Background
A member of the RNA family "Small Cajal body specific RNA 21" from Jaculus jaculus, 146 nucleotides long. Rfam classes the family as a small Cajal body RNA.

[Rfam]
RNA sequence: AGGCUCAAUUUCCUGGGAGGUGGUCUCAGCCUAUUCUACCUCCCCUCAGUAGAGCCUAGACUAGAAGGGCCAGGCCUCUUGCCUUGUGGGAGAGCAGAGAAGGGUGUCAGAGGAAGCCUCACCUCGGCUGGCCUGGCCUCACAUUG
Numbered sequence: 001a002g003g004c005u006c007a008a009u010u011u012c013c014u015g016g017g018a019g020g021u022g023g024u025c026u027c028a029g030c031c032u033a034u035u036c037u038a039c040c041u042c043c044c045c046u047c048a049g050u051a052g053a054g055c056c057u058a059g060a061c062u063a064g065a066a067g068g069g070c071c072a073g074g075c076c077u078c079u080u081g082c083c084u085u086g087u088g089g090g091a092g093a094g095c096a097g098a099g100a101a102g103g104g105u106g107u108c109a110g111a112g113g114a115a116g117c118c119u120c121a122c123c124u125c126g127g128c129u130g131g132c133c134u135g136g137c138c139u140c141a142c143a144u145u146g
Stems, first nucleotide, its partner, number of pairs: 002056005015044009067139004072134003078127002088119003
From the family's description: scaRNAs are a specific class of small nuclear RNAs which localise to the Cajal bodies and guide the modification of RNA polymerase II transcribed spliceosomal RNAs U1, U2, U4, U5 and U12. ACA68 (SCARNA21) is a member of the H/ACA class of snoRNAs that guide the sites of modification of uridines to pseudouridines. NCBI's taxonomy places the organism under Eukaryota, Craniata, Mammalia, Boreoeutheria, Jaculus.